[Rfam]
RNA sequence: GAGAAAUGAGGAUAAAUGAAUGAAUCUUGAUUCUUCUAAUGAAGACUUCAGAUCCAACUCUGAUCUCACCAGAGCU
Numbered sequence: 001g002a003g004a005a006a007u008g009a010g011g012a013u014a015a016a017u018g019a020a021u022g023a024a025u026c027u028u029g030a031u032u033c034u035u036c037u038a039a040u041g042a043a044g045a046c047u048u049c050a051g052a053u054c055c056a057a058c059u060c061u062g063a064u065c066u067c068a069c070c071a072g073a074g075c076u
Base pairs, nucleotide, nucleotide: 001067002066003065004064